[Rfam]
RNA sequence: UGCCACUUCAAUUCCGUAGUGCAUUGCAGUCGAUUCGUAUCGUCAUGUAAGAAACCUGCAAGCACCGCGGGAGUGAGGCGGUCUC
Number, nucleotide and partner (000 for none) at each position: 001u000002g000003c000004c000005a000006c078007u077008u076009c075010a074011a000012u000013u071014c070015c069016g068017u067018a000019g000020u064021g063022c062023a000024u061025u060026g059027c058028a057029g000030u000031c000032g000033a000034u000035u000036c000037g000038u000039a000040u000041c000042g000043u000044c000045a000046u000047g000048u000049a000050a000051g000052a000053a000054a000055c000056c000057u028058g027059c026060a025061a024062g022063c021064a020065c000066c000067g017068c016069g015070g014071g013072a000073g000074u010075g009076a008077g007078g006079c000080g000081g000082u000083c000084u000085c000

This 85-nucleotide RNA sequence belongs to the Rfam family "mir-932 microRNA precursor family". A search with the family's covariance model found it, with a score of 70 bits. The family's consensus secondary structure was predicted with RNAalifold. Rfam links the family to the GO terms RISC complex and miRNA-mediated post-transcriptional gene silencing. The literature on the family includes a 2010 paper in Nat Genet by Berezikov et al., "Evolutionary flux of canonical microRNAs and mirtrons in Drosophila".